[Rfam]
RNA: Streptomyces-metK RNA
RNA sequence: ACGAGACAGGAUGCCCCAACCACGAGAACGCCGGAUAAACUGACCGUGGACCCAGCGCCGAGCGCAGCUCUCGGCCGGGUCCGUCAAUGAUCAGCCAGCAGCCGCUGCAACCCCAGGGAG
Numbered sequence: 001a002c003g004a005g006a007c008a009g010g011a012u013g014c015c016c017c018a019a020c021c022a023c024g025a026g027a028a029c030g031c032c033g034g035a036u037a038a039a040c041u042g043a044c045c046g047u048g049g050a051c052c053c054a055g056c057g058c059c060g061a062g063c064g065c066a067g068c069u070c071u072c073g074g075c076c077g078g079g080u081c082c083g084u085c086a087a088u089g090a091u092c093a094g095c096c097a098g099c100a101g102c103c104g105c106u107g108c109a110a111c112c113c114c115a116g117g118g119a120g
Stems, first nucleotide, its partner, number of pairs: 048082006056074001059073004096107004